Notes:
Plastid-psbA-1 3UTR RNA: a 116-nucleotide sequence from Boehmeria umbrosa. Its Rfam clan is "Plastid-psbA 3UTR RNA clan".

[Rfam]
Nucleotides: 116
Base pairs, nucleotide, nucleotide: 009024010023011022012021013020063113064112065111066110067109068108069107070106071105072104073103074102075101077099078098079097081095082094084092
Number, partner (000 for none) and nucleotide at each position: 001000g002000u003000a004000g005000a006000a007000g008000u009024u010023c011022c012021a013020u014000c015000u016000a017000c018000a019000a020013a021012u022011g023010g024009a025000u026000a027000a028000u029000a030000c031000u032000u033000u034000u035000a036000u037000a038000u039000u040000a041000g042000u043000g044000u045000a046000u047000a048000c049000a050000a051000u052000u053000u054000c055000g056000u057000g058000a059000a060000a061000a062000u063113a064112a065111a066110g067109g068108a069107g070106c071105a072104u073103u074102a075101c076000u077099a078098a079097a080000c081095u082094u083000c084092u085000u086000u087000u088000a089000a090000u091000a092084a093000a094082a095081a096000g097079u098078u099077u100000a101075g102074u103073a104072g105071u106070g107069c108068u109067c110066c111065u112064u113063u114000a115000u116000u

Plastid psbA-1 is a non-coding RNA (ncRNA) present in plastids.
The source organism's lineage runs through Eukaryota, Streptophyta, Streptophytina, Gunneridae and Boehmeria.
The literature on the family includes a 2023 paper in Plant Commun by Richter et al., "Retrograde signaling in plants: A critical review focusing on the GUN pathway and beyond".
It is one of the family's seed sequences.